[Rfam]
RNA sequence: UGGAUCAAGCUGAAAAUUGAAACGACACACUGUGUCUGUUCUCCGUAAUAAGAACAGAUAAGCAGUGUGUUCGAGUCUCUCAAAUUUUCGCAACACGAUGUGUUUUACGAAACAUCUUCGG
Numbered sequence: 001u002g003g004a005u006c007a008a009g010c011u012g013a014a015a016a017u018u019g020a021a022a023c024g025a026c027a028c029a030c031u032g033u034g035u036c037u038g039u040u041c042u043c044c045g046u047a048a049u050a051a052g053a054a055c056a057g058a059u060a061a062g063c064a065g066u067g068u069g070u071u072c073g074a075g076u077c078u079c080u081c082a083a084a085u086u087u088u089c090g091c092a093a094c095a096c097g098a099u100g101u102g103u104u105u106u107a108c109g110a111a112a113c114a115u116c117u118u119c120g121g
Stems, first nucleotide, its partner, number of pairs: 009091002012089007023073003027070004033064003096120003100116001101114002

Rfam assigns this 121-nucleotide RNA sequence from Citrobacter freundii to the family "Salmonella enterica Typhi npcRNA 44". It scores 78 bits against the family's covariance model.